[Rfam]
RNA sequence: ACUCAACAUCGCGGGAGCUCGCGCCACAGCGGGCUGAGAGGGCGGCUGGAGCGAUCCGGCGCCGCCGACCGCCUGAACCUGACCGGGUAAUGCCGGCGUAGGGAGGAAUGUCGUGACGGCACU
Dot-bracket structure: .....((((.((((..(((((........)))))......(((((................)))))..)))).....((((.((((......))))..)))).....))))............